[Rfam]
RNA sequence: GGCGAUAAACUGUCAUUGUAAUAAACCCAUCGGACCCGGGGGCAGUACCCGGCGCCUCCACCAAUCACCCGUGUCAUGGCGCGGCAAAUGGGGGCGAAAUAGGAUCGACGGGGGCGUAAAGAAUGUGCUUUUGCUCGGUGAGGUACCACCGUUAUCGGUCCAAAAACUUAUAGUUGCCAAUGACAACCAUAAGGCUCCGGUUGCUCUCGCUGCGUAA
Numbered sequence: 001g002g003c004g005a006u007a008a009a010c011u012g013u014c015a016u017u018g019u020a021a022u023a024a025a026c027c028c029a030u031c032g033g034a035c036c037c038g039g040g041g042g043c044a045g046u047a048c049c050c051g052g053c054g055c056c057u058c059c060a061c062c063a064a065u066c067a068c069c070c071g072u073g074u075c076a077u078g079g080c081g082c083g084g085c086a087a088a089u090g091g092g093g094g095c096g097a098a099a100u101a102g103g104a105u106c107g108a109c110g111g112g113g114g115c116g117u118a119a120a121g122a123a124u125g126u127g128c129u130u131u132u133g134c135u136c137g138g139u140g141a142g143g144u145a146c147c148a149c150c151g152u153u154a155u156c157g158g159u160c161c162a163a164a165a166a167c168u169u170a171u172a173g174u175u176g177c178c179a180a181u182g183a184c185a186a187c188c189a190u191a192a193g194g195c196u197c198c199g200g201u202u203g204c205u206c207u208c209g210c211u212g213c214g215u216a217a
Stems, first nucleotide, its partner, number of pairs: 001135005014125004026114003030111003036052005053096007136151004

permuted transfer-messenger RNA: a 217-nucleotide sequence from Devosia oryzisoli. It is annotated as a non-coding RNA gene.